Record summary
The record is a 61-nucleotide RNA sequence from Mytilus coruscus, which matches "Selenocysteine insertion sequence 1" in Rfam. NCBI's taxonomy places the organism under Eukaryota, Protostomia, Mollusca, Mytilinae, Mytilus. A reference for the family is Walczak et al. (1996), "A novel RNA structural motif in the selenocysteine insertion element of eukaryotic selenoprotein mRNAs", RNA.
RNA sequence: GACUGUUCAUGACGUUAAAAUACUAAAUCCCCUGGGAUGUGUUUUAGUUGAUUUUUUAGUC
Number, nucleotide and partner (000 for none) at each position: 001g061002a060003c059004u058005g057006u000007u000008c000009a000010u000011g000012a000013c000014g048015u047016u046017a045018a044019a043020a042021u041022a040023c039024u000025a000026a000027a000028u000029c036030c035031c000032c000033u000034g000035g030036g029037a000038u000039g023040u022041g021042u020043u019044u018045u017046a016047g015048u014049u000050g000051a000052u000053u000054u000055u000056u000057u005058a004059g003060u002061c001